The family of this 138-nucleotide sequence from Hydra vulgaris is "U8 small nucleolar RNA".
RNA sequence: UCAUCAGUAUGGUGUAAUCCUUACCUGUUGACUGCUACGGCAGUCAUCAGUAAGGCAAAUGAUGACUAGGGCAGUAUGAUUCCUCACGAAUUACACGCUCGGGCCUAGAGACUAACACCCUCUUAGGUCACAUCUGAC
Numbered sequence: 001u002c003a004u005c006a007g008u009a010u011g012g013u014g015u016a017a018u019c020c021u022u023a024c025c026u027g028u029u030g031a032c033u034g035c036u037a038c039g040g041c042a043g044u045c046a047u048c049a050g051u052a053a054g055g056c057a058a059a060u061g062a063u064g065a066c067u068a069g070g071g072c073a074g075u076a077u078g079a080u081u082c083c084u085c086a087c088g089a090a091u092u093a094c095a096c097g098c099u100c101g102g103g104c105c106u107a108g109a110g111a112c113u114a115a116c117a118c119c120c121u122c123u124u125a126g127g128u129c130a131c132a133u134c135u136g137a138c
Base pairs, nucleotide, nucleotide: 025050026049027048029046031044032043033042034041035040078100079099081097084093104127105126106125107124108122109121110120
Rfam classes the family as a C/D-box small nucleolar RNA.